[Rfam]
mir-277 microRNA precursor family: a 109-nucleotide sequence from Danaus plexippus. Its family is annotated with miRNA-mediated post-transcriptional gene silencing and RISC complex in the Gene Ontology. The source organism's lineage runs through Eukaryota, Mandibulata, Allotriocarida, Obtectomera and Danaus plexippus.
RNA sequence: UACACCUCGGGGUCCGUGCCAGGAGUGCGUUUGCAAAGCACGCUACAAGUUUGCGUUGAUGCAAAGUUGACACUGUAAAUGCACUAUCUGGUACGACACCCCGUGGCGU
Numbered sequence: 001u002a003c004a005c006c007u008c009g010g011g012g013u014c015c016g017u018g019c020c021a022g023g024a025g026u027g028c029g030u031u032u033g034c035a036a037a038g039c040a041c042g043c044u045a046c047a048a049g050u051u052u053g054c055g056u057u058g059a060u061g062c063a064a065a066g067u068u069g070a071c072a073c074u075g076u077a078a079a080u081g082c083a084c085u086a087u088c089u090g091g092u093a094c095g096a097c098a099c100c101c102c103g104u105g106g107c108g109u
Base pairs, nucleotide, nucleotide: 008103009102010101011100015095016094017093018092019091020090021089022088023087025084027082028081029080030079031078032077033076034075035074